[Rfam]
RNA sequence: GGUGUUUGCAGAAGUAGCUUGCUGCGCUCUUUGAUAUCGCCACCAAUGUGGUAAGGCAAGCCGCAAUUCGCAAAAGAGACAAAAGGACCACGUUCAAACAUGAUUAUCUGUGCAUCUUCACUCAAACGACGUGCUCUAGCUGCUGCUGAAGCACCACCUGCGACGCCAC
Numbered sequence: 001g002g003u004g005u006u007u008g009c010a011g012a013a014g015u016a017g018c019u020u021g022c023u024g025c026g027c028u029c030u031u032u033g034a035u036a037u038c039g040c041c042a043c044c045a046a047u048g049u050g051g052u053a054a055g056g057c058a059a060g061c062c063g064c065a066a067u068u069c070g071c072a073a074a075a076g077a078g079a080c081a082a083a084a085g086g087a088c089c090a091c092g093u094u095c096a097a098a099c100a101u102g103a104u105u106a107u108c109u110g111u112g113c114a115u116c117u118u119c120a121c122u123c124a125a126a127c128g129a130c131g132u133g134c135u136c137u138a139g140c141u142g143c144u145g146c147u148g149a150a151g152c153a154c155c156a157c158c159u160g161c162g163a164c165g166c167c168a169c
Stems, first nucleotide, its partner, number of pairs: 001167006008161003011025001013023004032056001035053006060071002076154001084147002086144001088142001092140003099133001101131002104128001107125001110123001112121001
RNA: Vibrio RNA AS7
Organism: Vibrio vulnificus